[Rfam]
The family of this 78-nucleotide RNA from Cyprinus carpio is "mir-460 microRNA precursor family". The sequence is in the family's curated seed alignment.
RNA sequence: UUCUCUGGUCUCCUCAUUGUGCAUGCUGUGUGUCUUCAGUCUGGUCCUCACAGCGCCUGCAAUGUGGAGGCCAGGGGA
Numbered sequence: 001u002u003c004u005c006u007g008g009u010c011u012c013c014u015c016a017u018u019g020u021g022c023a024u025g026c027u028g029u030g031u032g033u034c035u036u037c038a039g040u041c042u043g044g045u046c047c048u049c050a051c052a053g054c055g056c057c058u059g060c061a062a063u064g065u066g067g068a069g070g071c072c073a074g075g076g077g078a
Stems, first nucleotide, its partner, number of pairs: 012067002015064007024055001026053005